[Rfam]
RNA: mir-315 microRNA precursor family
RNA sequence: GUUCCUUUUGAUUUUGAUUGUUGCUCAGAAAGCCGUGCAAUUGACGGGCUUUCGGGCAAUAAUCAUUUCCAAAAUGAAC
Number, nucleotide and partner (000 for none) at each position: 001g079002u078003u077004c076005c000006u074007u073008u000009u000010g000011a000012u000013u000014u000015u065016g064017a063018u062019u000020g060021u059022u058023g057024c056025u055026c054027a000028g053029a052030a051031a050032g049033c048034c047035g000036u000037g000038c000039a000040a000041u000042u000043g000044a000045c000046g000047g034048g033049c032050u031051u030052u029053c028054g026055g025056g024057c023058a022059a021060u020061a000062a018063u017064c016065a015066u000067u000068u000069c000070c000071a000072a000073a007074a006075u000076g004077a003078a002079c001